This 134-nucleotide RNA sequence from Thermoflavimicrobium dichotomicum belongs to the Rfam family "Ribosomal protein L20 leader".
The family's RNA type in Rfam is cis-regulatory leader.
This family is a putative r-protein leader autoregulatory structure found in B. subtilis and other low-GC Gram-positive bacteria. It is located in the 5' untranslated regions of mRNAs encoding initiation factor 3 followed by ribosomal proteins L35 and L20 (infC-rpmI-rplT). A Rho-independent transcription terminator structure that is probably involved in regulation is included at the 3' end.
[Rfam]
RNA sequence: CCGUGCAAGAAGAAGCGCCCGCUUCUCACCUAGUCGACGCUUCAGGCUGUUGCUAGGUUACCGAUGAACAUCCAUGAUGUGGUUGGUAGGAGGAUUCGUGUGGGCGCAAUGUGUGUCCACACUUUUUUGUUUUC
Numbered sequence: 001c002c003g004u005g006c007a008a009g010a011a012g013a014a015g016c017g018c019c020c021g022c023u024u025c026u027c028a029c030c031u032a033g034u035c036g037a038c039g040c041u042u043c044a045g046g047c048u049g050u051u052g053c054u055a056g057g058u059u060a061c062c063g064a065u066g067a068a069c070a071u072c073c074a075u076g077a078u079g080u081g082g083u084u085g086g087u088a089g090g091a092g093g094a095u096u097c098g099u100g101u102g103g104g105c106g107c108a109a110u111g112u113g114u115g116u117c118c119a120c121a122c123u124u125u126u127u128u129g130u131u132u133u134c
Base pairs, nucleotide, nucleotide: 011026012025013024014023015022016021028058029057030056036051037050038049039047040046099121100120101119102118103117104116105115106114107113108112

About this RNA: Pairs were carried over by alignment from the consensus structure, which was predicted with CMfinder. The organism belongs to Thermoflavimicrobium, within Bacteria.